[Rfam]
RNA sequence: UGUCGUCCAUUGCCCCUUUACUAUUGUACUACUGGGUAUUGAGAUGAGCAGUGCAAUAUUAAAAGGGCAUUGGCUGAUG
Numbered sequence: 001u002g003u004c005g006u007c008c009a010u011u012g013c014c015c016c017u018u019u020a021c022u023a024u025u026g027u028a029c030u031a032c033u034g035g036g037u038a039u040u041g042a043g044a045u046g047a048g049c050a051g052u053g054c055a056a057u058a059u060u061a062a063a064a065g066g067g068c069a070u071u072g073g074c075u076g077a078u079g
Stems, first nucleotide, its partner, number of pairs: 001079003005074001007073003012068004017063003022058009
RNA: mir-130 microRNA precursor family